[Rfam]
RNA: mir-16 microRNA precursor family
Organism: Cyprinodon variegatus
RNA sequence: GUUCUGCUGCUGCAGUACACUAAAUAUAUAUAUAUAUAUAUAUAUAUAUAUUUAGUGUACUGCAGCAGCAGAAC
Numbered sequence: 001g002u003u004c005u006g007c008u009g010c011u012g013c014a015g016u017a018c019a020c021u022a023a024a025u026a027u028a029u030a031u032a033u034a035u036a037u038a039u040a041u042a043u044a045u046a047u048a049u050a051u052u053u054a055g056u057g058u059a060c061u062g063c064a065g066c067a068g069c070a071g072a073a074c
Stems, first nucleotide, its partner, number of pairs: 001074003005070003011064008021054001023052008